RNA sequence: GGCCGGGAGGGCGACGGCCAUACAACACCCGCAAGGGGAAAACCGUCCGCCUGGCUCUAUCCAGGUUCUGAACCUCCCGGCCGCCCAGCC
Numbered sequence: 001g002g003c004c005g006g007g008a009g010g011g012c013g014a015c016g017g018c019c020a021u022a023c024a025a026c027a028c029c030c031g032c033a034a035g036g037g038g039a040a041a042a043c044c045g046u047c048c049g050c051c052u053g054g055c056u057c058u059a060u061c062c063a064g065g066u067u068c069u070g071a072a073c074c075u076c077c078c079g080g081c082c083g084c085c086c087a088g089c090c
Base pairs, nucleotide, nucleotide: 001082002081003080004079005078006077007076008075009074013047014046015045016044028037029036030035049066050065051064052063053062054061
sRNA-Xcc1: a 90-nucleotide sequence from Pseudothauera rhizosphaerae. The organism belongs to Pseudothauera, within Bacteria. On this family, see Chen et al., RNA Biol 2011: "sRNA-Xcc1, an integron-encoded transposon- and plasmid-transferred trans-acting sRNA, is under the positive control of the key virulence regulators HrpG and HrpX of Xanthomonas campestris pathovar campestris".